Source information:
Glycine riboswitch aptamer: an 89-nucleotide RNA from Aurantimonas aggregata. This family represents the bacterial glycine riboswitch.

[Rfam]
RNA sequence: CAGACGCAUGCGGGAGAGACCAGCCGAGAGGCUGGCGCCGAAGGAGCAACCGCCCCGGAAACUCUCAGGCAAAAGGACCGCUGCGUCGG
Numbered sequence: 001c002a003g004a005c006g007c008a009u010g011c012g013g014g015a016g017a018g019a020c021c022a023g024c025c026g027a028g029a030g031g032c033u034g035g036c037g038c039c040g041a042a043g044g045a046g047c048a049a050c051c052g053c054c055c056c057g058g059a060a061a062c063u064c065u066c067a068g069g070c071a072a073a074a075g076g077a078c079c080g081c082u083g084c085g086u087c088g089g
Stems, first nucleotide, its partner, number of pairs: 006084003010081004020035004037070003040066002044064003050058002
Overview:
The pairing is the family consensus, mapped onto this sequence.